[Rfam]
RNA: U11 spliceosomal RNA
RNA sequence: AAAAAGGGCUUCUGCCGUGCGUGGCACGGGGGGGCUUCGGCUGCUCCCGCGGAAUCGACAUCAAGAGAUUUCGGAAGCACAAUUUUUGUGGGAGGGGUCGCUGGUAAUCGCUUGUUCCGGCGCCCCG
Numbered sequence: 001a002a003a004a005a006g007g008g009c010u011u012c013u014g015c016c017g018u019g020c021g022u023g024g025c026a027c028g029g030g031g032g033g034g035c036u037u038c039g040g041c042u043g044c045u046c047c048c049g050c051g052g053a054a055u056c057g058a059c060a061u062c063a064a065g066a067g068a069u070u071u072c073g074g075a076a077g078c079a080c081a082a083u084u085u086u087u088g089u090g091g092g093a094g095g096g097g098u099c100g101c102u103g104g105u106a107a108u109c110g111c112u113u114g115u116u117c118c119g120g121c122g123c124c125c126c127g
Stems, first nucleotide, its partner, number of pairs: 008078005013026005027049006034041002050073007095125004100121005106116003